[Rfam]
RNA: pan motif
RNA sequence: UGGGUAGUAUCCAAUAUGGAACUGCACCUGAUUGUUUUUAUUUCUAAAUUUGUAUAAAAACUGCUCACAUCAAUAAAAUUAAGACAAAAU
Numbered sequence: 001u002g003g004g005u006a007g008u009a010u011c012c013a014a015u016a017u018g019g020a021a022c023u024g025c026a027c028c029u030g031a032u033u034g035u036u037u038u039u040a041u042u043u044c045u046a047a048a049u050u051u052g053u054a055u056a057a058a059a060a061c062u063g064c065u066c067a068c069a070u071c072a073a074u075a076a077a078a079u080u081a082a083g084a085c086a087a088a089a090u
Stems, first nucleotide, its partner, number of pairs: 002028002004025005010020002062086002064083002067080001070078001